A member of the RNA family "TPP riboswitch aptamer (THI element)" from Sphingomonas sp. AP4-R1, 110 nucleotides long. From the family's description: Vitamin B(1) in its active form thiamin pyrophosphate (TPP) is an essential coenzyme that is synthesised by coupling of pyrimidine and thiazole moieties in bacteria. Lineage of the source: Bacteria > Pseudomonadati > Pseudomonadota > Sphingomonadales > Sphingomonas. Gene Ontology term of the family: thiamine pyrophosphate binding.

RNA sequence: GCGCCAUCCCCGGGGGGCCGCUGACGCGCGGCUGAGAGGUGGGCAGCAGCUCACGACCCGCUGAACCUGAUCCGGUUGAUACCGGCGUAGGGAGGGCUGGCGGUCGUUCC
Numbered sequence: 001g002c003g004c005c006a007u008c009c010c011c012g013g014g015g016g017g018c019c020g021c022u023g024a025c026g027c028g029c030g031g032c033u034g035a036g037a038g039g040u041g042g043g044c045a046g047c048a049g050c051u052c053a054c055g056a057c058c059c060g061c062u063g064a065a066c067c068u069g070a071u072c073c074g075g076u077u078g079a080u081a082c083c084g085g086c087g088u089a090g091g092g093a094g095g096g097c098u099g100g101c102g103g104u105c106g107u108u109c110c
Stems, first nucleotide, its partner, number of pairs: 006098001008096003011060004016054001017032005040053005066091004072085004